Background:
A member of the RNA family "Lysine riboswitch aptamer" from Vibrio xiamenensis, 183 nucleotides long.

RNA sequence: AUGAGCGGUAGAGGAGCAAGUUGAAUCAGUAACAGUGAUUGGGGUGAUGCCAAUGAAUUGCUGUGAAAGGUCUGCUUGCCGAAGUCUGUUUUAUAUCAAAACAACAGGCUGGGGUUGGGGUCGAAUAGGGCCAACACUGCCAUAGUCUAUUUAUUUGUAAAACUAUGGAGCGCUACUGUAGGG
Numbered sequence: 001a002u003g004a005g006c007g008g009u010a011g012a013g014g015a016g017c018a019a020g021u022u023g024a025a026u027c028a029g030u031a032a033c034a035g036u037g038a039u040u041g042g043g044g045u046g047a048u049g050c051c052a053a054u055g056a057a058u059u060g061c062u063g064u065g066a067a068a069g070g071u072c073u074g075c076u077u078g079c080c081g082a083a084g085u086c087u088g089u090u091u092u093a094u095a096u097c098a099a100a101a102c103a104a105c106a107g108g109c110u111g112g113g114g115u116u117g118g119g120g121u122c123g124a125a126u127a128g129g130g131c132c133a134a135c136a137c138u139g140c141c142a143u144a145g146u147c148u149a150u151u152u153a154u155u156u157g158u159a160a161a162a163c164u165a166u167g168g169a170g171c172g173c174u175a176c177u178g179u180a181g182g183g
Base pairs, nucleotide, nucleotide: 006178007177008176009175010174011173016079017078018077019076020075021074023072024071032064033063034062035061036060037059038058039057083110084109085108086107087106088105089104090103092101094099111138112137114135115134116133117132118131121128140168141167142166143165144164145163146162